Annotation
Shown here is a 136-nucleotide RNA from Phyllostomus discolor, a member of the family "Small nucleolar RNA SNORA44". Gene Ontology terms of the family: nucleolus and RNA processing.

RNA sequence: CAGCAUGUCUCCAAGGGCUGAGGCUGCUUGUAGCCGUGGGAUCUCUGUUGGCAUGAGGGAGGCCGCCCGCCCGGAGAGACCCCGACAGCUCAGGGCAGCGCAGUGCCUGCAGAGGCCGCUCGCCUUCCCUGCGCUC
Numbered sequence: 001c002a003g004c005a006u007g008u009c010u011c012c013a014a015g016g017g018c019u020g021a022g023g024c025u026g027c028u029u030g031u032a033g034c035c036g037u038g039g040g041a042u043c044u045c046u047g048u049u050g051g052c053a054u055g056a057g058g059g060a061g062g063c064c065g066c067c068c069g070c071c072c073g074g075a076g077a078g079a080c081c082c083c084g085a086c087a088g089c090u091c092a093g094g095g096c097a098g099c100g101c102a103g104u105g106c107c108u109g110c111a112g113a114g115g116c117c118g119c120u121c122g123c124c125u126u127c128c129c130u131g132c133g134c135u136c
Stems, first nucleotide, its partner, number of pairs: 011039002016035005022029001073129002076126003088116002091109004
Dot-bracket structure: ..........((...(((((.(......).)))))..)).................................((.(((.........((.((((...........)))).....)).......))).)).......
Record summary
By type it is an H/ACA-box small nucleolar RNA. ACA44 is a member of the H/ACA class of snoRNA that guide the sites of modification of uridines to pseudouridines. The family is grouped with related families in Rfam's "SNORA44 clan".